[Rfam]
RNA sequence: GUUAAUGUUAGUGGAUGGUGUUCAGUACCAAGGACAUGUAUGUUACCUGUUAGUUAAUGUUAGUGGAUGGUGUUCAGCACCAAGGACAUGUAUGUUACCUG
Numbered sequence: 001g002u003u004a005a006u007g008u009u010a011g012u013g014g015a016u017g018g019u020g021u022u023c024a025g026u027a028c029c030a031a032g033g034a035c036a037u038g039u040a041u042g043u044u045a046c047c048u049g050u051u052a053g054u055u056a057a058u059g060u061u062a063g064u065g066g067a068u069g070g071u072g073u074u075c076a077g078c079a080c081c082a083a084g085g086a087c088a089u090g091u092a093u094g095u096u097a098c099c100u101g
Stems, first nucleotide, its partner, number of pairs: 002092001005089004016082007024074007034060004
RNA: mir-2060 microRNA precursor family